[Rfam]
RNA sequence: UUCAUUGUUGUCAAUGAUGUAUUCUUGUCGGAACUGAGUCUAAAUGAUCUAACUUAAAUAUUCGUCACUACCACUGAGAUGACAAUGAA
Numbered sequence: 001u002u003c004a005u006u007g008u009u010g011u012c013a014a015u016g017a018u019g020u021a022u023u024c025u026u027g028u029c030g031g032a033a034c035u036g037a038g039u040c041u042a043a044a045u046g047a048u049c050u051a052a053c054u055u056a057a058a059u060a061u062u063c064g065u066c067a068c069u070a071c072c073a074c075u076g077a078g079a080u081g082a083c084a085a086u087g088a089a
Stems, first nucleotide, its partner, number of pairs: 001089012
RNA: Small nucleolar RNA SNORD70